A member of the RNA family "Ribosomal protein L10 leader" from Paenibacillus rigui, 158 nucleotides long. It scores 76 bits against the family's covariance model. From the family's description: This family is a putative r-protein leader autoregulatory structure found in B. subtilis and other low-GC Gram-positive bacteria. It is located in the 5' untranslated regions of mRNAs encoding ribosomal proteins L10 and L12 (rplJ-rplL). A Rho-independent transcription terminator structure that is probably involved in regulation is included at the 3' end. The base pairs follow the family's consensus structure, which was predicted with CMfinder. The source organism's lineage runs through Bacteria, Bacillati, Bacillota, Bacilli and Paenibacillus.
RNA sequence: ACAAACGAAUAUGACUUACCGUAGACAGCAGGUGCCCCUAAAGGGCUUAAUUCCCUGCCGAGGUGUUAUGAUAUAGAGUUCCUUUUCUUUGCUUGUACAAAGAUUAUGUGAAAUCAUCAUGCCUUCGCAGUGUCUGCGGAGGCAUUUUCUGUUUUAAU
Numbered sequence: 001a002c003a004a005a006c007g008a009a010u011a012u013g014a015c016u017u018a019c020c021g022u023a024g025a026c027a028g029c030a031g032g033u034g035c036c037c038c039u040a041a042a043g044g045g046c047u048u049a050a051u052u053c054c055c056u057g058c059c060g061a062g063g064u065g066u067u068a069u070g071a072u073a074u075a076g077a078g079u080u081c082c083u084u085u086u087c088u089u090u091g092c093u094u095g096u097a098c099a100a101a102g103a104u105u106a107u108g109u110g111a112a113a114u115c116a117u118c119a120u121g122c123c124u125u126c127g128c129a130g131u132g133u134c135u136g137c138g139g140a141g142g143c144a145u146u147u148u149c150u151g152u153u154u155u156a157a158u
Base pairs, nucleotide, nucleotide: 028058029057030056031055032054034046035045036044120144121143122142123141124140125139126138127137128136129135